[Rfam]
RNA sequence: ACAGAGAAUCGGUCUGCCGCUGGCGCUUUCGGGCGCGAGAGGAAAGUCCGGGCAACAUAGGGCAUCCUGCUUCUUAAUGUGGAAGUUAUCCGUGAGGGUAAAGUAGCGCAGAAGAAAAUAACCGCCACGCCUGAGGUGUGGUAAGGGUGAGAAGGUGGGGCAAGAGCCCACCAGACAGGUGGCGACACCUUGUGCUGUGCGCCUCAGGAGUUGCAAGUUCAUGUAUACCAGAGUUUGAGGGCGGCCCGUCUAAUCUGGAGGGUAGAAUGCUAGAGGGCGGUGGCGACACCGUCAGUGGAUAAAUGGCAGACGGUCUGCAAAGACUACAGAACCCGGCUUAUAGAUUCUCUGUUUCU
Numbered sequence: 001a002c003a004g005a006g007a008a009u010c011g012g013u014c015u016g017c018c019g020c021u022g023g024c025g026c027u028u029u030c031g032g033g034c035g036c037g038a039g040a041g042g043a044a045a046g047u048c049c050g051g052g053c054a055a056c057a058u059a060g061g062g063c064a065u066c067c068u069g070c071u072u073c074u075u076a077a078u079g080u081g082g083a084a085g086u087u088a089u090c091c092g093u094g095a096g097g098g099u100a101a102a103g104u105a106g107c108g109c110a111g112a113a114g115a116a117a118a119u120a121a122c123c124g125c126c127a128c129g130c131c132u133g134a135g136g137u138g139u140g141g142u143a144a145g146g147g148u149g150a151g152a153a154g155g156u157g158g159g160g161c162a163a164g165a166g167c168c169c170a171c172c173a174g175a176c177a178g179g180u181g182g183c184g185a186c187a188c189c190u191u192g193u194g195c196u197g198u199g200c201g202c203c204u205c206a207g208g209a210g211u212u213g214c215a216a217g218u219u220c221a222u223g224u225a226u227a228c229c230a231g232a233g234u235u236u237g238a239g240g241g242c243g244g245c246c247c248g249u250c251u252a253a254u255c256u257g258g259a260g261g262g263u264a265g266a267a268u269g270c271u272a273g274a275g276g277g278c279g280g281u282g283g284c285g286a287c288a289c290c291g292u293c294a295g296u297g298g299a300u301a302a303a304u305g306g307c308a309g310a311c312g313g314u315c316u317g318c319a320a321a322g323a324c325u326a327c328a329g330a331a332c333c334c335g336g337c338u339u340a341u342a343g344a345u346u347c348u349c350u351g352u353u354u355c356u
Stems, first nucleotide, its partner, number of pairs: 001352010011341001012311007020039002023036005044339003048336005053213004060247004065209005070085005086101001088099004102204002106202005122146002124142008154172006174195001175193003178189004217268004228258005239251004276293007
Dot-bracket structure: ((((((((((((((((((.((.(((((....))))).))....[[[.[[[[[((((...[[[[.((((((((((......)))))(.((((....)))).)((..(((((...........((((((((((...))))))))..)).......((((((.......)))))).((((((((....)))).))).)..))))))))))))))))...((((.......(((((......((((.]]]]))))..)))))......)))).......(((((((....)))))))...........)))))))....................]]]]]]]].).))))))))))....
RNA: Bacterial RNase P class A